[Rfam]
RNA sequence: AUACCAAGUGAUGAAAAUGGAUUUUAAAUUUCUCACGACGGUCAUCUGAGACUCUGUGUCGAAGUUGAUUCAAAGAUCCAAUUUUUCUGAUGUUU
Number, nucleotide and partner (000 for none) at each position: 001a095002u000003a093004c092005c000006a000007a000008g000009u000010g000011a000012u000013g000014a000015a000016a000017a000018u000019g000020g000021a000022u000023u000024u000025u000026a000027a000028a000029u000030u000031u000032c000033u000034c000035a000036c000037g000038a000039c000040g000041g000042u000043c000044a000045u000046c000047u000048g000049a000050g060051a059052c058053u000054c000055u000056g000057u000058g052059u051060c050061g000062a000063a000064g000065u000066u000067g000068a000069u000070u000071c000072a000073a000074a000075g000076a000077u000078c000079c000080a000081a000082u000083u000084u000085u000086u000087c000088u000089g000090a000091u000092g004093u003094u000095u001
A member of the RNA family "Small nucleolar RNA Z161/Z228" from Macleaya cordata, 95 nucleotides long. The organism belongs to Macleaya, within Eukaryota. The family's consensus secondary structure was predicted with PFOLD.